Notes: This 80-nucleotide RNA sequence from Alligator mississippiensis belongs to the Rfam family "Mammalian CPEB3 ribozyme". The mammalian CPEB3 ribozyme is a self cleaving RNA located in the second intron of the CPEB3 gene which belongs to a family of genes regulating messenger RNA polyadenylation.

RNA sequence: AGAGGUCAAAAGUUUGAGGCCAUAGCUGAAGUGGUCACAGCACGGCCAUAUCAGAUUCUAACAAAUCUGCAAAUUCUGCC
Numbered sequence: 001a002g003a004g005g006u007c008a009a010a011a012g013u014u015u016g017a018g019g020c021c022a023u024a025g026c027u028g029a030a031g032u033g034g035u036c037a038c039a040g041c042a043c044g045g046c047c048a049u050a051u052c053a054g055a056u057u058c059u060a061a062c063a064a065a066u067c068u069g070c071a072a073a074u075u076c077u078g079c080c
Stems, first nucleotide, its partner, number of pairs: 013048001018047004025079002028076003031043003052069006